[Rfam]
RNA sequence: CUGCACGAUGCAACCCCGGGCUUCUCUGAGGAUCUCUGUGACGGUGAAAGCCCCAUUGCUCGUGCUAAAUUCCCGCCGUUUAGUGUUGCAGUUUAGCUUCUUGUACCUUUUUUUCCACAGCUGAUCUGUGUCAAAUCAACGGCUACAUCU
Numbered sequence: 001c002u003g004c005a006c007g008a009u010g011c012a013a014c015c016c017c018g019g020g021c022u023u024c025u026c027u028g029a030g031g032a033u034c035u036c037u038g039u040g041a042c043g044g045u046g047a048a049a050g051c052c053c054c055a056u057u058g059c060u061c062g063u064g065c066u067a068a069a070u071u072c073c074c075g076c077c078g079u080u081u082a083g084u085g086u087u088g089c090a091g092u093u094u095a096g097c098u099u100c101u102u103g104u105a106c107c108u109u110u111u112u113u114u115c116c117a118c119a120g121c122u123g124a125u126c127u128g129u130g131u132c133a134a135a136u137c138a139a140c141g142g143c144u145a146c147a148u149c150u
Stems, first nucleotide, its partner, number of pairs: 003065006010059002018053005023047002025044002075143006084133002087130005096121003